The record is a 105-nucleotide sequence from Prunus persica, which matches "MIR6274 microRNA precursor family" in Rfam. Gene Ontology terms of the family: miRNA-mediated post-transcriptional gene silencing and RISC complex. A search with the family's covariance model found it, with a score of 88 bits. The family has 2 seed sequences and 342 matches in Rfam 15.1. The source organism's lineage runs through Eukaryota, eudicotyledons, Gunneridae, Rosales and Prunus.
RNA sequence: GGAUAGCACUAUUUUGCUAUCCUCAGCUAAUAACACAAUAACAUGUGAAAAAGUUAUUUUACAUGUCAUUGCAUUAUUAGCCGAAAAUAGCAAAAAAUGUUAUCC
Numbered sequence: 001g002g003a004u005a006g007c008a009c010u011a012u013u014u015u016g017c018u019a020u021c022c023u024c025a026g027c028u029a030a031u032a033a034c035a036c037a038a039u040a041a042c043a044u045g046u047g048a049a050a051a052a053g054u055u056a057u058u059u060u061a062c063a064u065g066u067c068a069u070u071g072c073a074u075u076a077u078u079a080g081c082c083g084a085a086a087a088u089a090g091c092a093a094a095a096a097a098u099g100u101u102a103u104c105c
Base pairs, nucleotide, nucleotide: 002104003103004102005101012095013094014093015092016091017090018089019088020087023084024083026081027080028079029078030077031076032075033074036071037070038069039068041066042065043064044063045062046061047060048059049058050057